[Rfam]
RNA sequence: GUGGUACCGGUUCCCGUCCUUCGGGGCGACCCGGCGACC
Numbered sequence: 001g002u003g004g005u006a007c008c009g010g011u012u013c014c015c016g017u018c019c020u021u022c023g024g025g026g027c028g029a030c031c032c033g034g035c036g037a038c039c
Stems, first nucleotide, its partner, number of pairs: 003039003007034004015028005